Notes:
FMN riboswitch aptamer (RFN element): a 173-nucleotide RNA from Martelella alba. On this family, see Gelfand et al., Trends Genet 1999: "A conserved RNA structure element involved in the regulation of bacterial riboflavin synthesis genes". Pairs were carried over by alignment from the consensus structure, which is taken from published work. A search with the family's covariance model found it, with a score of 104 bits.

[Rfam]
RNA sequence: GCCUGUCUUCGGGGCGGGGUGAAACUCCCCACCGGCGGUGGUGUUGUUGGUGAUCUCUUCUCAAGGUCCAUGCAGCUAAGUCCGCGAGCGCCUGAUAUCGCCAGAUGUCAGGGUCAGCAGAUCUGGUCAAACUCCAGAACCGACGGUUACAGUCCGGAUGGAAGAAGACGAAG
Numbered sequence: 001g002c003c004u005g006u007c008u009u010c011g012g013g014g015c016g017g018g019g020u021g022a023a024a025c026u027c028c029c030c031a032c033c034g035g036c037g038g039u040g041g042u043g044u045u046g047u048u049g050g051u052g053a054u055c056u057c058u059u060c061u062c063a064a065g066g067u068c069c070a071u072g073c074a075g076c077u078a079a080g081u082c083c084g085c086g087a088g089c090g091c092c093u094g095a096u097a098u099c100g101c102c103a104g105a106u107g108u109c110a111g112g113g114u115c116a117g118c119a120g121a122u123c124u125g126g127u128c129a130a131a132c133u134c135c136a137g138a139a140c141c142g143a144c145g146g147u148u149a150c151a152g153u154c155c156g157g158a159u160g161g162a163a164g165a166a167g168a169c170g171a172a173g
Base pairs, nucleotide, nucleotide: 004170005169006168007167008166009165010164017029018028019027031153032152033142034141035085036084037083038082088118089117122138123137124136125135126134144156145155146154